Description
Rfam assigns this 80-nucleotide RNA from Echinops telfairi to the family "mir-92 microRNA precursor family". Rfam 15.1 lists 1,347 matches to the family in 653 species. The organism belongs to Echinops, within Eukaryota. From the family's description: This family represents the microRNA precursor mir-92. Human miR-92 has two predicted hairpin precursor sequences: mir-92-1 on chromosome 13 and mir-92-2 on chromosome X. miR-92 has also been cloned from mouse embryonic stem cells. The mature sequence is excised from the 3' arm of the hairpin. On this family, see Mourelatos et al., Genes Dev 2002: "miRNPs: a novel class of ribonucleoproteins containing numerous microRNAs". Gene Ontology terms of the family: RISC complex and miRNA-mediated post-transcriptional gene silencing. It is one of the family's seed sequences.
[Rfam]
RNA sequence: AUUCAUCCCUGGGUGGGGAUUGGGUGCAUUACUUGUGUCCUGUGUGAAGUAUUGCACUUGUCCCGGCCUGUGGAAGAAAG
Numbered sequence: 001a002u003u004c005a006u007c008c009c010u011g012g013g014u015g016g017g018g019a020u021u022g023g024g025u026g027c028a029u030u031a032c033u034u035g036u037g038u039c040c041u042g043u044g045u046g047a048a049g050u051a052u053u054g055c056a057c058u059u060g061u062c063c064c065g066g067c068c069u070g071u072g073g074a075a076g077a078a079a080g
Base pairs, nucleotide, nucleotide: 004076006074010070011069012068013067014066016064017063018062019061020060022058023057026055027054028053030051031050032049033048034047